This 233-nucleotide RNA from Streptomyces sp. ISL-96 belongs to the Rfam family "Streptomyces sRNA 4677". A search with the family's covariance model found it, with a score of 114 bits. Taxonomically the source falls in Streptomyces (Bacteria, Bacillati, Kitasatosporales, Streptomycetaceae).

[Rfam]
RNA sequence: CGUCGCGGUGUGGCGCGAUGCCUAAAACUUUCAAUCCCUGGGAGAGCAAAUACCCCUCCCAACCCCUCCAGCCUCCCCGUCACCCACACGGGUGGCAUUCGCCAACUGGAGUGGAUUUGCGGGCGGUUGCCGGGCAUAUGCUCGCCCCGACAACCGCACACAUGCGACGGCCCCCGGCCGGGACUGGCAUCCCGAACGAGGGCCUGACCACCGAGGAAGACGGAACCUUCCCG
Dot-bracket structure: ......((((.....................................................................((((((....)))))).................((...........................)).........................(((((.((...((((......))))...)).)))))....))))..(((((.......)))))..